[Rfam]
RNA sequence: CCUCCCGCUUCUCCUCCCUGAGCGGGGGCCUUGAUUCAAGGCUAUUGACCCCGGCGCCCCCGCCGGGGUUUUUUUU
Numbered sequence: 001c002c003u004c005c006c007g008c009u010u011c012u013c014c015u016c017c018c019u020g021a022g023c024g025g026g027g028g029c030c031u032u033g034a035u036u037c038a039a040g041g042c043u044a045u046u047g048a049c050c051c052c053g054g055c056g057c058c059c060c061c062g063c064c065g066g067g068g069u070u071u072u073u074u075u076u
Stems, first nucleotide, its partner, number of pairs: 004026006028042006049068008

This 76-nucleotide RNA from Thiomonas delicata belongs to the Rfam family "Burkholderia RNA 7 (anti-hemB)". A reference for the family is Weinberg et al. (2007), "Identification of 22 candidate structured RNAs in bacteria using the CMfinder comparative genomics pipeline", Nucleic Acids Res. From the family's description: This RNA motif was identified by computational search in b-proteobacteria Burkholderia. Co-purified with Hfq, expression confirmed by Northern blot. Its family is annotated with bacterial biofilm matrix and protein binding in the Gene Ontology. The family's RNA type in Rfam is small RNA.